[Rfam]
A member of the RNA family "Ribosomal protein L20 leader" from Clostridium argentinense, 115 nucleotides long. A search with the family's covariance model found it, with a score of 64 bits. The family's RNA type in Rfam is cis-regulatory leader. Gene Ontology term of the family: regulation of gene expression. Pairs were carried over by alignment from the consensus structure, which was predicted with CMfinder. On this family, see Zengel and Lindahl, Prog Nucleic Acid Res Mol Biol 1994: "Diverse mechanisms for regulating ribosomal protein synthesis in Escherichia coli".
RNA sequence: UAUUUAAAGAAGAAACAGCCGUUUCUCACCUUACAGUUAAGCUAGUAAGGUUAACUGUUUAAUAAAUUUGUGUAUUACAGAGGGCGGCAUUUGUCGCCCUCUUAUUUAUAUAAUU
Numbered sequence: 001u002a003u004u005u006a007a008a009g010a011a012g013a014a015a016c017a018g019c020c021g022u023u024u025c026u027c028a029c030c031u032u033a034c035a036g037u038u039a040a041g042c043u044a045g046u047a048a049g050g051u052u053a054a055c056u057g058u059u060u061a062a063u064a065a066a067u068u069u070g071u072g073u074a075u076u077a078c079a080g081a082g083g084g085c086g087g088c089a090u091u092u093g094u095c096g097c098c099c100u101c102u103u104a105u106u107u108a109u110a111u112a113a114u115u
Base pairs, nucleotide, nucleotide: 011026012025013024014023015022016021028051029050030049033046034045035043036042079102080101081100082099083098084097085096086095087094088093